[Rfam]
RNA sequence: ACUCAGGCACGAUUCCGGCGUUGGUGAUGCGCCGGGAAGCGACCUGAAGUUCAACCCUGAGGGA
Dot-bracket structure: (((((((.....(((((((((.......))))))))).....)))).)))..............